The record is a 147-nucleotide RNA from Roseovarius pacificus, which matches "Ruegeria cis2 sRNA" in Rfam. Gene Ontology term of the family: regulation of gene expression. By type it is a small RNA. The literature on the family includes a 2016 paper in Front Microbiol by Rivers et al., "Experimental Identification of Small Non-Coding RNAs in the Model Marine Bacterium Ruegeria pomeroyi DSS-3".

Nucleotides: 147
Stems, first nucleotide, its partner, number of pairs: 002024002007019003031051003035046004058147002061144002064076004080141004085136004094125003097121005104113003
Number, partner (000 for none) and nucleotide at each position: 001000a002024u003023u004000g005000c006000g007019u008018g009017g010000g011000a012000a013000g014000u015000a016000a017009u018008u019007g020000a021000u022000g023003a024002a025000g026000g027000u028000a029000a030000a031051g032050c033049c034000c035046c036045g037044g038043c039000a040000c041000u042000g043038g044037u045036c046035g047000a048000u049033g050032g051031c052000g053000u054000g055000a056000a057000a058147c059146a060000a061144c062143g063000g064076g065075u066074u067073c068000c069000a070000g071000u072000c073067g074066a075065a076064c077000a078000u079000u080141g081140c082139g083138a084000c085136c086135a087134u088133g089000a090000a091000g092000g093000a094125c095124g096123g097121c098120a099119g100118g101117g102000a103000g104113u105112u106111g107000g108000c109000a110000a111106c112105g113104a114000a115000c116000a117101u118100c119099u120098u121097g122000c123096c124095c125094g126000a127000g128000g129000c130000g131000a132000u133088c134087a135086u136085g137000u138083u139082c140081g141080c142000g143062c144061g145000c146059u147058g